[Rfam]
RNA: Purine riboswitch aptamer
Organism: Alkalihalobacillus alcalophilus
RNA sequence: AAAAAGAUCAAACAACCAUGUCGUAUAACUGCAGGAAUAGGGUCUGCGCGUUUCUACCAAGCUACCGUAAAUAGCUUGACUACGAUUUCAGUCAAUCAGUCU
Numbered sequence: 001a002a003a004a005a006g007a008u009c010a011a012a013c014a015a016c017c018a019u020g021u022c023g024u025a026u027a028a029c030u031g032c033a034g035g036a037a038u039a040g041g042g043u044c045u046g047c048g049c050g051u052u053u054c055u056a057c058c059a060a061g062c063u064a065c066c067g068u069a070a071a072u073a074g075c076u077u078g079a080c081u082a083c084g085a086u087u088u089c090a091g092u093c094a095a096u097c098a099g100u101c102u
Base pairs, nucleotide, nucleotide: 018088020086021085022084023083024082025081030048031047032046033045034044035043058078059077060076061075062074063073064072